A member of the RNA family "sraA" from Buttiauxella agrestis, 96 nucleotides long. A search with the family's covariance model found it, with a score of 83 bits. A reference for the family is Argaman et al. (2001), "Novel small RNA-encoding genes in the intergenic regions of Escherichia coli", Curr Biol. The family's RNA type in Rfam is small RNA. The family's consensus secondary structure was predicted with RNAalifold.

[Rfam]
RNA sequence: AAGUAAGUCAGUAUAUUGGGAUGUUUCCCGCACAUUCAAUGGCAGGAAUGAAGGAAAAGCAAAAGGGGGAUAUAAAUCCCCCUUUUUAUACUAACU
Number, nucleotide and partner (000 for none) at each position: 001a000002a000003g000004u000005a000006a000007g000008u038009c000010a036011g035012u034013a000014u000015a000016u032017u000018g000019g029020g028021a000022u000023g000024u000025u000026u000027c000028c020029c019030g000031c000032a016033c000034a012035u011036u010037c000038a008039a000040u000041g000042g000043c000044a000045g000046g000047a000048a000049u000050g000051a000052a000053g000054g000055a000056a000057a000058a000059g000060c000061a086062a085063a084064a083065g082066g081067g080068g079069g078070a077071u076072a000073u000074a000075a000076a071077u070078c069079c068080c067081c066082c065083u064084u063085u062086u061087u000088a000089u000090a000091c000092u000093a000094a000095c000096u000